[Rfam]
RNA sequence: CAGCUAGCUUAGCCUAGCGGUUACUUCAUCUUGCAGGAUUCCUCAAUCCUCGGUGGAGGGUUUGAUACCCCGCGGGUGCUGUCUGGUUUUUAG
Numbered sequence: 001c002a003g004c005u006a007g008c009u010u011a012g013c014c015u016a017g018c019g020g021u022u023a024c025u026u027c028a029u030c031u032u033g034c035a036g037g038a039u040u041c042c043u044c045a046a047u048c049c050u051c052g053g054u055g056g057a058g059g060g061u062u063u064g065a066u067a068c069c070c071c072g073c074g075g076g077u078g079c080u081g082u083c084u085g086g087u088u089u090u091u092a093g
Base pairs, nucleotide, nucleotide: 002088003087004086005085006084007083012077013076014075015074017073018072019071020070026065027064028063
Dot-bracket structure: .((((((....((((.((((.....(((..................................)))....)))))))).....)))))).....
The record is a 93-nucleotide sequence from Podarcis muralis, which matches "Vault RNA" in Rfam. A search with the family's covariance model found it, with a score of 53 bits. A reference for the family is Stadler et al. (2009), "Evolution of Vault RNAs", Mol Biol Evol.